RNA sequence: AUAAAAAACGAAAUAAUACCUCAUAUAAUUUUGGGAAUAUGGCCCAUACGUCUCUACCUGAUAACCGUAAAUUGUCAGACUAUGGGGGAAGGUACCGCAGCU
Dot-bracket structure: ..................(((((((....(.((((.......)))).).........(((((((.......)))))))..)))))))...............
Numbered sequence: 001a002u003a004a005a006a007a008a009c010g011a012a013a014u015a016a017u018a019c020c021u022c023a024u025a026u027a028a029u030u031u032u033g034g035g036a037a038u039a040u041g042g043c044c045c046a047u048a049c050g051u052c053u054c055u056a057c058c059u060g061a062u063a064a065c066c067g068u069a070a071a072u073u074g075u076c077a078g079a080c081u082a083u084g085g086g087g088g089a090a091g092g093u094a095c096c097g098c099a100g101c102u
Stems, first nucleotide, its partner, number of pairs: 019087007030048001032046004058078007
Rfam assigns this 102-nucleotide sequence from Alkalicoccobacillus porphyridii to the family "Purine riboswitch aptamer". Its Rfam clan is "Purine riboswitches". The base pairs follow the family's consensus structure, which is taken from published work. A search with the family's covariance model found it, with a score of 86 bits.